RNA: mir-1000 microRNA precursor family
Organism: Orchesella cincta
RNA sequence: GGCUAUGAUAUUGUCCUGUCACAGCAGUACUGAAUUAUAAAGAUACUGGUGUGUCGGGACAUAUCCUUAGCU
Numbered sequence: 001g002g003c004u005a006u007g008a009u010a011u012u013g014u015c016c017u018g019u020c021a022c023a024g025c026a027g028u029a030c031u032g033a034a035u036u037a038u039a040a041a042g043a044u045a046c047u048g049g050u051g052u053g054u055c056g057g058g059a060c061a062u063a064u065c066c067u068u069a070g071c072u
Stems, first nucleotide, its partner, number of pairs: 003070003012061007022051002025048005